[Rfam]
The family of this 96-nucleotide RNA from Corchorus olitorius is "Small nucleolar RNA R72".
Rfam's curators write: snoR72 is a C/D box small nucleolar RNA, which acts as a methylation guide for 25S ribosomal RNA in Arabidopsis.
On this family, see Chen et al., Nucleic Acids Res 2003: "The high diversity of snoRNAs in plants: identification and comparative study of 120 snoRNA genes from Oryza sativa".
Gene Ontology terms of the family: nucleolus and RNA processing.
RNA sequence: UGGCAUAUGAUGAGAAUCAUUUUUGGGUAUGAGAAGCUCGCCAAUUUUUUAAUGCGAGCGAUGUUUGCACCUCAUACUUCCAUGACUCUGAUGCCA
Numbered sequence: 001u002g003g004c005a006u007a008u009g010a011u012g013a014g015a016a017u018c019a020u021u022u023u024u025g026g027g028u029a030u031g032a033g034a035a036g037c038u039c040g041c042c043a044a045u046u047u048u049u050u051a052a053u054g055c056g057a058g059c060g061a062u063g064u065u066u067g068c069a070c071c072u073c074a075u076a077c078u079u080c081c082a083u084g085a086c087u088c089u090g091a092u093g094c095c096a
Stems, first nucleotide, its partner, number of pairs: 001096005036059006